RNA sequence: CCAGGUGCGAUGAGUUGGAGGAUUGGGUCUCAGCAUUGGACGAGCGGUUUGUGGAGUGCCAGAUCUAACUCUUCCAGCUCAUCCCACUCUGG
Numbered sequence: 001c002c003a004g005g006u007g008c009g010a011u012g013a014g015u016u017g018g019a020g021g022a023u024u025g026g027g028u029c030u031c032a033g034c035a036u037u038g039g040a041c042g043a044g045c046g047g048u049u050u051g052u053g054g055a056g057u058g059c060c061a062g063a064u065c066u067a068a069c070u071c072u073u074c075c076a077g078c079u080c081a082u083c084c085c086a087c088u089c090u091g092g
Stems, first nucleotide, its partner, number of pairs: 001092005011081009021071002025066006034058002036054002
mir-750 microRNA precursor family: a 92-nucleotide RNA from Capitella teleta.
Rfam's curators put it in the seed alignment.